[Rfam]
Rfam assigns this 118-nucleotide sequence from Nyssa sinensis to the family "U5 spliceosomal RNA". The match comes from Rfam's covariance-model search (90 bits). Rfam links the family to the GO terms U5 snRNP and spliceosomal tri-snRNP complex assembly.

Nucleotides: 118
Stems, first nucleotide, its partner, number of pairs: 003077004008067004013062006027053008097118006
Number, partner (000 for none) and nucleotide at each position: 001000a002000g003077c004076c005075u006074c007000g008067c009066g010065g011064u012000g013062a014061g015060u016059a017058c018057a019000a020000a021000g022000c023000g024000a025000a026000c027053u028052a029051u030050u031049c032048u033047u034046u035000c036000g037000c038000c039000u040000u041000u042000u043000a044000c045000u046034a047033a048032a049031g050030a051029a052028u053027a054000c055000c056000g057018u058017g059016u060015g061014c062013u063000g064011g065010c066009c067008g068000c069000a070000c071000a072000a073000a074006g075005a076004g077003g078000c079000a080000u081000a082000c083000g084000c085000u086000a087000a088000u089000u090000u091000u092000u093000g094000g095000a096000g097118g098117g099116u100115u101114u102113u103000c104000u105000c106000u107000a108000u109000u110000a111000g112000a113102g114101g115100g116099a117098c118097c